[Rfam]
RNA sequence: UCUCGAUAAAGGCAAACCUGGUGAAAGCCAGUGACGCAAAGCUAUAGGGGCUUCAGUGUAAUUCGCACUAUGCUAGCCAGUUACCGAA
Numbered sequence: 001u002c003u004c005g006a007u008a009a010a011g012g013c014a015a016a017c018c019u020g021g022u023g024a025a026a027g028c029c030a031g032u033g034a035c036g037c038a039a040a041g042c043u044a045u046a047g048g049g050g051c052u053u054c055a056g057u058g059u060a061a062u063u064c065g066c067a068c069u070a071u072g073c074u075a076g077c078c079a080g081u082u083a084c085c086g087a088a
Stems, first nucleotide, its partner, number of pairs: 012037002018031005040082004047078002049074003056068004
Source information
Shown here is an 88-nucleotide RNA sequence from Aquibacillus salsiterrae, a member of the family "c-di-GMP-I riboswitch aptamer". It scores 75 bits against the family's covariance model. NCBI's taxonomy places the organism under Bacteria, Bacillota, Bacilli, Bacillaceae, Aquibacillus.